Rfam assigns this 103-nucleotide sequence from Aneurinibacillus migulanus to the family "TPP riboswitch aptamer (THI element)". Rfam describes the family as follows. Vitamin B(1) in its active form thiamin pyrophosphate (TPP) is an essential coenzyme that is synthesised by coupling of pyrimidine and thiazole moieties in bacteria. The previously detected thiamin-regulatory element, thi box was extended, resulting in a new, highly conserved RNA secondary structure, the THI element, which is widely distributed in eubacteria and also occurs in some archaea. The family's consensus secondary structure is taken from published work.

[Rfam]
Nucleotides: 103
Stems, first nucleotide, its partner, number of pairs: 006091005011053004016047001017027004034046005059084004065078004
Number, partner (000 for none) and nucleotide at each position: 001000a002000a003000a004000g005000u006091c007090c008089a009088c010087u011053g012052g013051g014050g015000g016047u017027g018026c019025c020024g021000a022000u023000a024020u025019g026018g027017c028000u029000g030000a031000g032000a033000u034046a035045a036044g037043g038042u039000a040000u041000a042038g043037c044036c045035u046034u047016a048000a049000u050014c051013c052012c053011u054000u055000c056000g057000a058000a059084c060083c061082u062081g063000a064000u065078c066077u067076g068075g069000a070000u071000u072000a073000u074000a075068c076067c077066a078065g079000c080000g081062u082061a083060g084059g085000g086000a087010a088009g089008u090007g091006g092000u093000a094000u095000c096000g097000u098000u099000g100000a101000c102000c103000g